[Rfam]
RNA sequence: UUUGCGGAGAGUUUGAUCCUGGCUCAGAGUUAACGCUGGCAUCGUGCAUAACACAUGCAAGUCGAACGGGAAUUUUUUGUGUAGCAAUACAUGAAAAAUUCUAGUGGCAGACGGGUGAGUAAUACAUAAGGAAUCUACCUUGAAGUGGGGAACAACUAGUCGAAAGAUUAGCUAAUACUCCAUAAUAUCACUUAGUGGCAUCACUUAGUGAUUAAAGAUUUAUCGCUUCAAGACGAUCUUAUGGUCUAUCAGCUAGUUGGUAGGGUAAUGGCCUACCAAGGCGACGACGGAUAGCCGGCCUGAAAGGGCGACCGGCCACAGGGGCACUGAGACACGGGCCCCACUCCUACGGGAGGCAGCAGUGGGGAAUUUUGGACAAUGGACGCAAGUCUGAUCCAGCAACGAUGCGUGGAGGAUGAAGGUUUUCGGAUUGUAAACUCCUUUUGCAGGGGAAGAAAAAAAUGACGGUACUCUGCGAAUAAGCCACGGCUAACUACGUGCCAGCAGCCGCGGUAAGACGUAGGUGGCAAGCGUUACUCGGAAUUACUA
Numbered sequence: 001u002u003u004g005c006g007g008a009g010a011g012u013u014u015g016a017u018c019c020u021g022g023c024u025c026a027g028a029g030u031u032a033a034c035g036c037u038g039g040c041a042u043c044g045u046g047c048a049u050a051a052c053a054c055a056u057g058c059a060a061g062u063c064g065a066a067c068g069g070g071a072a073u074u075u076u077u078u079g080u081g082u083a084g085c086a087a088u089a090c091a092u093g094a095a096a097a098a099u100u101c102u103a104g105u106g107g108c109a110g111a112c113g114g115g116u117g118a119g120u121a122a123u124a125c126a127u128a129a130g131g132a133a134u135c136u137a138c139c140u141u142g143a144a145g146u147g148g149g150g151a152a153c154a155a156c157u158a159g160u161c162g163a164a165a166g167a168u169u170a171g172c173u174a175a176u177a178c179u180c181c182a183u184a185a186u187a188u189c190a191c192u193u194a195g196u197g198g199c200a201u202c203a204c205u206u207a208g209u210g211a212u213u214a215a216a217g218a219u220u221u222a223u224c225g226c227u228u229c230a231a232g233a234c235g236a237u238c239u240u241a242u243g244g245u246c247u248a249u250c251a252g253c254u255a256g257u258u259g260g261u262a263g264g265g266u267a268a269u270g271g272c273c274u275a276c277c278a279a280g281g282c283g284a285c286g287a288c289g290g291a292u293a294g295c296c297g298g299c300c301u302g303a304a305a306g307g308g309c310g311a312c313c314g315g316c317c318a319c320a321g322g323g324g325c326a327c328u329g330a331g332a333c334a335c336g337g338g339c340c341c342c343a344c345u346c347c348u349a350c351g352g353g354a355g356g357c358a359g360c361a362g363u364g365g366g367g368a369a370u371u372u373u374g375g376a377c378a379a380u381g382g383a384c385g386c387a388a389g390u391c392u393g394a395u396c397c398a399g400c401a402a403c404g405a406u407g408c409g410u411g412g413a414g415g416a417u418g419a420a421g422g423u424u425u426u427c428g429g430a431u432u433g434u435a436a437a438c439u440c441c442u443u444u445u446g447c448a449g450g451g452g453a454a455g456a457a458a459a460a461a462a463u464g465a466c467g468g469u470a471c472u473c474u475g476c477g478a479a480u481a482a483g484c485c486a487c488g489g490c491u492a493a494c495u496a497c498g499u500g501c502c503a504g505c506a507g508c509c510g511c512g513g514u515a516a517g518a519c520g521u522a523g524g525u526g527g528c529a530a531g532c533g534u535u536a537c538u539c540g541g542a543a544u545u546a547c548u549a
Stems, first nucleotide, its partner, number of pairs: 009025005027539004032535006039408006045401002047366001052364003056361003061108003066105002069101002077094007115319003125243007134236002139232007147181004156171006187212006195204003217224002245291003252282003257279008294316004298309004321342005344355004372398001374397003380393005411441004421432004446476006455466001483528005494523005504511002
Bacterial small subunit ribosomal RNA: a 549-nucleotide part of an RNA from Elusimicrobium minutum. For this family Rfam cites "Crystal structure of the ribosome at 5.5 A resolution" (Yusupov et al., Science, 2001). Rfam's curators put it in the seed alignment. The source organism's lineage runs through Bacteria, Pseudomonadati, Elusimicrobiota, Elusimicrobia and Elusimicrobium minutum.